[Rfam]
A member of the RNA family "ZMP/ZTP riboswitch aptamer (pfl RNA motif)", 94 nucleotides long. Pairs were carried over by alignment from the consensus structure, which is taken from published work. The sequence is in the family's curated seed alignment. Rfam links the family to the GO terms regulation of purine nucleotide biosynthetic process and one-carbon metabolic process.

RNA sequence: CGCAAGGCCGCUGACCGACGGGAUAUUGUGGGGCUUACCACAGGGGACGCGGCGUUAUCACUUGCCUUUUAAGCCGACCGUCUGGGCUGCAUAC
Numbered sequence: 001c002g003c004a005a006g007g008c009c010g011c012u013g014a015c016c017g018a019c020g021g022g023a024u025a026u027u028g029u030g031g032g033g034c035u036u037a038c039c040a041c042a043g044g045g046g047a048c049g050c051g052g053c054g055u056u057a058u059c060a061c062u063u064g065c066c067u068u069u070u071a072a073g074c075c076g077a078c079c080g081u082c083u084g085g086g087c088u089g090c091a092u093a094c
Base pairs, nucleotide, nucleotide: 004056005055007053008052009051010050011049015045016044017082018081019080020079021078028041029040030039031038072088073087074086075085